The family of this 169-nucleotide RNA sequence from Mesorhizobium sp. L-8-10 is "Brucella sRNA CI27". The base pairs follow the family's consensus structure, which was predicted with RNAfold. The organism belongs to Mesorhizobium, within Bacteria. A search with the family's covariance model found it, with a score of 69 bits. A reference for the family is Dong et al. (2014), "Identification of novel sRNAs in Brucella abortus 2308", FEMS Microbiol Lett.
RNA sequence: GACGUUGACCAAAGCAUGUCUCCCGAAAGCGGGUACCGGGUUUCGGGACAAAGACAUGCGUCAAAUCAAAGACCUGCAGUGUGUUGCGUGAAUCCGUCUUCACGCAACACGCUGCAGGCACUGAUGUUCCGAUGCAGGAAGCCCCUCCGGAGCGGGGCUGGUUUGCCGA
Numbered sequence: 001g002a003c004g005u006u007g008a009c010c011a012a013a014g015c016a017u018g019u020c021u022c023c024c025g026a027a028a029g030c031g032g033g034u035a036c037c038g039g040g041u042u043u044c045g046g047g048a049c050a051a052a053g054a055c056a057u058g059c060g061u062c063a064a065a066u067c068a069a070a071g072a073c074c075u076g077c078a079g080u081g082u083g084u085u086g087c088g089u090g091a092a093u094c095c096g097u098c099u100u101c102a103c104g105c106a107a108c109a110c111g112c113u114g115c116a117g118g119c120a121c122u123g124a125u126g127u128u129c130c131g132a133u134g135c136a137g138g139a140a141g142c143c144c145c146u147c148c149g150g151a152g153c154g155g156g157g158c159u160g161g162u163u164u165g166c167c168g169a
Base pairs, nucleotide, nucleotide: 014059015058016057017056018055019054020053021052023046024045025044026043027042028041030039032037062165063164064163065162066161067160068159070122071121073118074117075116076115077114078113079112080111081110082109083108084107085106086105087104089102090101091100129155130154